Rfam assigns this 505-nucleotide sequence from Streptomyces klenkii to the family "Saccharopolyspora sRNA 350". The literature on the family includes a 2013 paper in PLoS One by Liu et al., "Prediction and characterization of small non-coding RNAs related to secondary metabolites in Saccharopolyspora erythraea".
[Rfam]
RNA sequence: CGGACGCUGAACUCCCAGGUGCCGUCGGGCUCCAGCGGCACCCGCUCGCCGAAGUAGUCGCCGUCGGCCAGCACGCCGAGCACGGUCUCGUCGCCGUACUUGCCGGUGCCCGUCUUGUUGAGCUUGCCGUGGGCGACGAGGUAGAUGUGGUCGGCCGGGGCGCCGGCCUCGACGAGCGUGUCACCGGCGGCGUACUCGCGCUGGACGAAGCCGCUCGCCAGCGCCUCCAGCGUGUCGUUGUCGCCGAAGUCCCGCAGCAGCGGCAGCUCCCCGAGCUCCGGCGGGAUGACCCGGACCUCCGAGCCGGUCGAGAUGAACUCGACCCGGCCGUCCCCGACGGUGUACGUGAGCCGCCUGUUCACCCGGUAGGUGCCGGCGGACACCUGCACCCAUGGCAGCACGCGCAGCAGCCAGCGGGACGAGAUCCCCUGCAUCUGCGGUACGGACUUGGUCGUCGUGGCGAGCUGGCGGGCCGCGGACGUACCGAGGCUGAGCUGCGCCUCCC
Numbered sequence: 001c002g003g004a005c006g007c008u009g010a011a012c013u014c015c016c017a018g019g020u021g022c023c024g025u026c027g028g029g030c031u032c033c034a035g036c037g038g039c040a041c042c043c044g045c046u047c048g049c050c051g052a053a054g055u056a057g058u059c060g061c062c063g064u065c066g067g068c069c070a071g072c073a074c075g076c077c078g079a080g081c082a083c084g085g086u087c088u089c090g091u092c093g094c095c096g097u098a099c100u101u102g103c104c105g106g107u108g109c110c111c112g113u114c115u116u117g118u119u120g121a122g123c124u125u126g127c128c129g130u131g132g133g134c135g136a137c138g139a140g141g142u143a144g145a146u147g148u149g150g151u152c153g154g155c156c157g158g159g160g161c162g163c164c165g166g167c168c169u170c171g172a173c174g175a176g177c178g179u180g181u182c183a184c185c186g187g188c189g190g191c192g193u194a195c196u197c198g199c200g201c202u203g204g205a206c207g208a209a210g211c212c213g214c215u216c217g218c219c220a221g222c223g224c225c226u227c228c229a230g231c232g233u234g235u236c237g238u239u240g241u242c243g244c245c246g247a248a249g250u251c252c253c254g255c256a257g258c259a260g261c262g263g264c265a266g267c268u269c270c271c272c273g274a275g276c277u278c279c280g281g282c283g284g285g286a287u288g289a290c291c292c293g294g295a296c297c298u299c300c301g302a303g304c305c306g307g308u309c310g311a312g313a314u315g316a317a318c319u320c321g322a323c324c325c326g327g328c329c330g331u332c333c334c335c336g337a338c339g340g341u342g343u344a345c346g347u348g349a350g351c352c353g354c355c356u357g358u359u360c361a362c363c364c365g366g367u368a369g370g371u372g373c374c375g376g377c378g379g380a381c382a383c384c385u386g387c388a389c390c391c392a393u394g395g396c397a398g399c400a401c402g403c404g405c406a407g408c409a410g411c412c413a414g415c416g417g418g419a420c421g422a423g424a425u426c427c428c429c430u431g432c433a434u435c436u437g438c439g440g441u442a443c444g445g446a447c448u449u450g451g452u453c454g455u456c457g458u459g460g461c462g463a464g465c466u467g468g469c470g471g472g473c474c475g476c477g478g479a480c481g482u483a484c485c486g487a488g489g490c491u492g493a494g495c496u497g498c499g500c501c502u503c504c505c
Stems, first nucleotide, its partner, number of pairs: 006390001008388002011385001018328001021325001025322005031316002039312001040308003047303001049301001051299002054233002058229001060227001063224002066110003075103001077102004082097005117222004122218002126214002129211001130209001131206001134203002138199001140197001143196002150191001154188005160182001161178002166173001234296003240290004245285001251281002254278001256277003260271001262269001329342004351379005357373001360372004391431002394428002397425001399423001401421001403418001405416001407415001437476004443470002448464002451461002477504002480499003487496002
A search with the family's covariance model found it, with a score of 183 bits. Taxonomically the source falls in Streptomyces (Bacteria, Bacillati, Kitasatosporales, Streptomycetaceae).